[Rfam]
RNA sequence: AGAAUUCCCCUUCUGGAGACACCAUAAUCACGAAGGUGGUUUUCCCAGGGCGAGGCUUAUCUAUUGCACUCUGGAUGUGCUGACCUCUGCGACCUCCCCAAAUGUGGGAAACGCGACUGUAUAAUUUGUGGUAGUAGGGGACUGCGUUCAUGCUUUCCCCUG
Numbered sequence: 001a002g003a004a005u006u007c008c009c010c011u012u013c014u015g016g017a018g019a020c021a022c023c024a025u026a027a028u029c030a031c032g033a034a035g036g037u038g039g040u041u042u043u044c045c046c047a048g049g050g051c052g053a054g055g056c057u058u059a060u061c062u063a064u065u066g067c068a069c070u071c072u073g074g075a076u077g078u079g080c081u082g083a084c085c086u087c088u089g090c091g092a093c094c095u096c097c098c099c100a101a102a103u104g105u106g107g108g109a110a111a112c113g114c115g116a117c118u119g120u121a122u123a124a125u126u127u128g129u130g131g132u133a134g135u136a137g138g139g140g141a142c143u144g145c146g147u148u149c150a151u152g153c154u155u156u157c158c159c160c161u162g
Base pairs, nucleotide, nucleotide: 013119015117016044017043018042019041021040022039023038024037025036047088048087049086050085052084054081055080056079058077059076060075061074062073090115091114095109097107098106136161137160138159139158140157141156144153145152146151
A member of the RNA family "U1 spliceosomal RNA" from Aotus nancymaae, 162 nucleotides long. Rfam classes the family as a spliceosomal small nuclear RNA. Pairs were carried over by alignment from the consensus structure, which is taken from published work. A search with the family's covariance model found it, with a score of 106 bits.